RNA sequence: UGGCUAUAAAAUAAUUUAUUAUGUGGCCACUUUGAGUUACGAUAAUUACUAUGUUAAUUCACGAGAUUAUAGUAACUCCUUACUAUAUGAUUUACUAUAACGGUACGGUAAAUAUCCUCAUGUGUUAUAGUAACACAACUAUCGUAAAUAUGUAUUCACUUUAUCGUCAAUUAGUAUAUAAAAUUAUAUAAAAAGGAAAUGGAGGUGGCUAUAUAUAAAAUAAUAUAUAUAUA
Numbered sequence: 001u002g003g004c005u006a007u008a009a010a011a012u013a014a015u016u017u018a019u020u021a022u023g024u025g026g027c028c029a030c031u032u033u034g035a036g037u038u039a040c041g042a043u044a045a046u047u048a049c050u051a052u053g054u055u056a057a058u059u060c061a062c063g064a065g066a067u068u069a070u071a072g073u074a075a076c077u078c079c080u081u082a083c084u085a086u087a088u089g090a091u092u093u094a095c096u097a098u099a100a101c102g103g104u105a106c107g108g109u110a111a112a113u114a115u116c117c118u119c120a121u122g123u124g125u126u127a128u129a130g131u132a133a134c135a136c137a138a139c140u141a142u143c144g145u146a147a148a149u150a151u152g153u154a155u156u157c158a159c160u161u162u163a164u165c166g167u168c169a170a171u172u173a174g175u176a177u178a179u180a181a182a183a184u185u186a187u188a189u190a191a192a193a194a195g196g197a198a199a200u201g202g203a204g205g206u207g208g209c210u211a212u213a214u215a216u217a218a219a220a221u222a223a224u225a226u227a228u229a230u231a232u233a
Stems, first nucleotide, its partner, number of pairs: 001233002005229004010224001012222002015219004020215014037191003042187006050178010061167002065165003069161001072157001074155001080147004087142003091138002093132010107117002

Rfam assigns this 233-nucleotide sequence from Miscanthus lutarioriparius to the family "MIR6217 microRNA precursor family". The source organism's lineage runs through Eukaryota, Viridiplantae, Embryophyta, Saccharinae and Miscanthus. The family has 2 seed sequences and 2,266 matches in Rfam 15.1. The match comes from Rfam's covariance-model search (122 bits).